[Rfam]
This 54-nucleotide RNA from Sphingomonas metalli belongs to the Rfam family "chrB-b RNA". The family's consensus secondary structure is taken from published work. The match comes from Rfam's covariance-model search (40 bits).
RNA sequence: CCGGGCCUGCACGGACGCCCGGUCAGACGGAGCGCGUCGCCGUCCAAGAUCCGU
Number, nucleotide and partner (000 for none) at each position: 001c022002c021003g020004g019005g018006c017007c000008u000009g000010c000011a054012c053013g052014g051015a050016c000017g006018c005019c004020c003021g002022g001023u000024c000025a000026g044027a043028c042029g041030g040031a000032g000033c000034g000035c000036g000037u000038c000039g000040c030041c029042g028043u027044c026045c000046a000047a000048g000049a000050u015051c014052c013053g012054u011